This 198-nucleotide RNA from Panicum miliaceum belongs to the Rfam family "MIR1435 microRNA precursor family". The family's consensus secondary structure was predicted with RNAalifold.
RNA sequence: UAGCUUUGUCCCAAGUCAAACAUCUCUGAAUUUGACCAAGCUUAUAAAAAAAAGUAAAUUUCCACAGUACUAAGUAAAUACACUAUCAAUAUAUACUUCAUGGUCGAUUUAAUGAAACUAUUUGAUAUUGUAGAUGUUGAUACUUUUUUUCUAUAAACUUGGUCAAAGUUAGAUAGGUUUGACUUGGGACAAAGCCAA
Numbered sequence: 001u002a003g004c005u006u007u008g009u010c011c012c013a014a015g016u017c018a019a020a021c022a023u024c025u026c027u028g029a030a031u032u033u034g035a036c037c038a039a040g041c042u043u044a045u046a047a048a049a050a051a052a053a054g055u056a057a058a059u060u061u062c063c064a065c066a067g068u069a070c071u072a073a074g075u076a077a078a079u080a081c082a083c084u085a086u087c088a089a090u091a092u093a094u095a096c097u098u099c100a101u102g103g104u105c106g107a108u109u110u111a112a113u114g115a116a117a118c119u120a121u122u123u124g125a126u127a128u129u130g131u132a133g134a135u136g137u138u139g140a141u142a143c144u145u146u147u148u149u150u151c152u153a154u155a156a157a158c159u160u161g162g163u164c165a166a167a168g169u170u171a172g173a174u175a176g177g178u179u180u181g182a183c184u185u186g187g188g189a190c191a192a193a194g195c196c197a198a
Stems, first nucleotide, its partner, number of pairs: 005193005011187011023175001025173002031167005043153002046150005054141002057138003061134002064131003071124005